RNA sequence: CCGUUCAACUCGUCGCUUCUUCGAAAGCGACUACGGGAG
Numbered sequence: 001c002c003g004u005u006c007a008a009c010u011c012g013u014c015g016c017u018u019c020u021u022c023g024a025a026a027g028c029g030a031c032u033a034c035g036g037g038a039g
Stems, first nucleotide, its partner, number of pairs: 001036004012031007
Overview: This 39-nucleotide RNA from Pseudaminobacter soli belongs to the Rfam family "THF-II riboswitch (folE RNA)". Pairs were carried over by alignment from the consensus structure, which is taken from published work. A reference for the family is Xu et al. (2023), "Structural insights into translation regulation by the THF-II riboswitch", Nucleic Acids Res. The match comes from Rfam's covariance-model search (62 bits). Gene Ontology term of the family: regulation of gene expression.